[Rfam]
RNA sequence: GAACGAAAGUAUGUGGGGGAUGCCUGGGCACAUAGAGGCGAUGAAGGCCGCGGUAAGCUGCGAUAAGCUCGGGGGAGCGGCACACACGCAUUGAUCCCGAGAUGGCCGAAUGGGGAAACCCGGCGGGGCGCGAGUCCCGUCACCGCGCAAGCGGAGCGAACCAGGGGAACUGAAACAUCUAAGUACCCUGAGGAAGAGAAAUCAAACGAGAUGCCCUGAGUAGUGGCGAGCGAAACGGGUACAGGCCAAACCGUUCUCCUUGUGGGAGCGGGGUUGUAGGACCUACGGACGCGGUCAGUGACGUCAGUCGAAGUCUCCUGGAACGGAGCGCCAAAGACGGUGAUAGCCCGGUAGGCGAAGAUUAUGAACUGAUCGUAGUAGAGUUCCUGAGUAACGCCCGACCCGAGUAAUCGGGCGUGAAGCCGGGGGGACCACCCUCCAAGCCUAAAGACUCCUAUGUGACCGAUAGUGGACGAGUACCGUGAGGGACAGGUGAAAAGCACCCCUGUGCGGGGAGUGAAAGAGAUCCUGAAACCACAUACUUACAAG
Numbered sequence: 001g002a003a004c005g006a007a008a009g010u011a012u013g014u015g016g017g018g019g020a021u022g023c024c025u026g027g028g029c030a031c032a033u034a035g036a037g038g039c040g041a042u043g044a045a046g047g048c049c050g051c052g053g054u055a056a057g058c059u060g061c062g063a064u065a066a067g068c069u070c071g072g073g074g075g076a077g078c079g080g081c082a083c084a085c086a087c088g089c090a091u092u093g094a095u096c097c098c099g100a101g102a103u104g105g106c107c108g109a110a111u112g113g114g115g116a117a118a119c120c121c122g123g124c125g126g127g128g129c130g131c132g133a134g135u136c137c138c139g140u141c142a143c144c145g146c147g148c149a150a151g152c153g154g155a156g157c158g159a160a161c162c163a164g165g166g167g168a169a170c171u172g173a174a175a176c177a178u179c180u181a182a183g184u185a186c187c188c189u190g191a192g193g194a195a196g197a198g199a200a201a202u203c204a205a206a207c208g209a210g211a212u213g214c215c216c217u218g219a220g221u222a223g224u225g226g227c228g229a230g231c232g233a234a235a236c237g238g239g240u241a242c243a244g245g246c247c248a249a250a251c252c253g254u255u256c257u258c259c260u261u262g263u264g265g266g267a268g269c270g271g272g273g274u275u276g277u278a279g280g281a282c283c284u285a286c287g288g289a290c291g292c293g294g295u296c297a298g299u300g301a302c303g304u305c306a307g308u309c310g311a312a313g314u315c316u317c318c319u320g321g322a323a324c325g326g327a328g329c330g331c332c333a334a335a336g337a338c339g340g341u342g343a344u345a346g347c348c349c350g351g352u353a354g355g356c357g358a359a360g361a362u363u364a365u366g367a368a369c370u371g372a373u374c375g376u377a378g379u380a381g382a383g384u385u386c387c388u389g390a391g392u393a394a395c396g397c398c399c400g401a402c403c404c405g406a407g408u409a410a411u412c413g414g415g416c417g418u419g420a421a422g423c424c425g426g427g428g429g430g431a432c433c434a435c436c437c438u439c440c441a442a443g444c445c446u447a448a449a450g451a452c453u454c455c456u457a458u459g460u461g462a463c464c465g466a467u468a469g470u471g472g473a474c475g476a477g478u479a480c481c482g483u484g485a486g487g488g489a490c491a492g493g494u495g496a497a498a499a500g501c502a503c504c505c506c507u508g509u510g511c512g513g514g515g516a517g518u519g520a521a522a523g524a525g526a527u528c529c530u531g532a533a534a535c536c537a538c539a540u541a542c543u544u545a546c547a548a549g
Stems, first nucleotide, its partner, number of pairs: 007544010022529001023493002027464002029461007036453002038157002046107003049062003068101007077089003112121003122141007143154004161192001162190005172179002202209002212449001213240004223231002243446004251271007278388003283381004292375008303362003307356003313329001315328004332336001338350003394418008425440005480487002503515004
RNA: Bacterial large subunit ribosomal RNA, nucleotides 9 to 557
Organism: Gemmatimonas aurantiaca